[Rfam]
This 73-nucleotide sequence from Rhodanobacter sp. B05 belongs to the Rfam family "tRNA". It scores 58 bits against the family's covariance model.
RNA sequence: GCUCCCUUCGUCUAGUGGCCCAGGACACUGCCCUCUCAAGGCGGGAACACGAGUUCGAGUCUCGUAGGGAGCA
Numbered sequence: 001g002c003u004c005c006c007u008u009c010g011u012c013u014a015g016u017g018g019c020c021c022a023g024g025a026c027a028c029u030g031c032c033c034u035c036u037c038a039a040g041g042c043g044g045g046a047a048c049a050c051g052a053g054u055u056c057g058a059g060u061c062u063c064g065u066a067g068g069g070a071g072c073a
Stems, first nucleotide, its partner, number of pairs: 001072007010026004028044005049065005